[Rfam]
RNA: Small nucleolar RNA SNORD2
Organism: Aphidius gifuensis
RNA sequence: AGUUUAAAUGAUGUUUUCAUCUUUCGGGUCUGAUUAACAUUGAUGACAAUAUACCUUACUGAUAAAUU
Numbered sequence: 001a002g003u004u005u006a007a008a009u010g011a012u013g014u015u016u017u018c019a020u021c022u023u024u025c026g027g028g029u030c031u032g033a034u035u036a037a038c039a040u041u042g043a044u045g046a047c048a049a050u051a052u053a054c055c056u057u058a059c060u061g062a063u064a065a066a067u068u
Base pairs, nucleotide, nucleotide: 001068002067003066004065005064006063